The record is an 83-nucleotide sequence from Halalkalibacter suaedae, which matches "c-di-GMP-I riboswitch aptamer" in Rfam. Taxonomically the source falls in Halalkalibacter (Bacteria, Bacillati, Bacillota, Caryophanales). It scores 79 bits against the family's covariance model.
[Rfam]
RNA sequence: UCACUGAACAGGCAAACUCAUUGAAAGAUGAGGACGCAAAGCUACAGACCUAAAGAGAAAUCUAUGGUGGCUGAGUUACCAAA
Numbered sequence: 001u002c003a004c005u006g007a008a009c010a011g012g013c014a015a016a017c018u019c020a021u022u023g024a025a026a027g028a029u030g031a032g033g034a035c036g037c038a039a040a041g042c043u044a045c046a047g048a049c050c051u052a053a054a055g056a057g058a059a060a061u062c063u064a065u066g067g068u069g070g071c072u073g074a075g076u077u078a079c080c081a082a083a
Stems, first nucleotide, its partner, number of pairs: 012037002017032006040077004045073003048068003055062002